[Rfam]
Small nucleolar RNA SNORD60: an 89-nucleotide RNA sequence from Cyclopterus lumpus. Rfam classes the family as a C/D-box small nucleolar RNA. The match comes from Rfam's covariance-model search (58 bits). For this family Rfam cites "Purified box C/D snoRNPs are able to reproduce site-specific 2'-O-methylation of target RNA in vitro" (Galardi et al., Mol Cell Biol, 2002). Rfam links the family to the GO terms RNA processing and nucleolus. Taxonomically the source falls in Cyclopterus (Eukaryota, Bilateria, Teleostei, Neoteleostei).
RNA sequence: AGCCUGUGAUGAUCAAAUCAAAUUACUUUUCUGACAUCUACUAUGAGAGCUGGUCUCCAGCUCCUGAUUCUAUCUUUAUUCUGAGGCUU
Numbered sequence: 001a002g003c004c005u006g007u008g009a010u011g012a013u014c015a016a017a018u019c020a021a022a023u024u025a026c027u028u029u030u031c032u033g034a035c036a037u038c039u040a041c042u043a044u045g046a047g048a049g050c051u052g053g054u055c056u057c058c059a060g061c062u063c064c065u066g067a068u069u070c071u072a073u074c075u076u077u078a079u080u081c082u083g084a085g086g087c088u089u
Base pairs, nucleotide, nucleotide: 001088002087003086004085049061050060051059052058053057
Dot-bracket structure: ((((............................................(((((...))))).......................)))).